[Rfam]
RNA: rydB RNA
Organism: Sodalis praecaptivus
RNA sequence: AUCCUUUACAGAGCUAACGCCAUGGGCCCCCUCAUGAGUGCCGGAGAUAAGCGCCGGAAAGGAUAAACGCA
Numbered sequence: 001a002u003c004c005u006u007u008a009c010a011g012a013g014c015u016a017a018c019g020c021c022a023u024g025g026g027c028c029c030c031c032u033c034a035u036g037a038g039u040g041c042c043g044g045a046g047a048u049a050a051g052c053g054c055c056g057g058a059a060a061g062g063a064u065a066a067a068c069g070c071a
Base pairs, nucleotide, nucleotide: 002063003062004061005060013039014038015037041057042056043055044054046052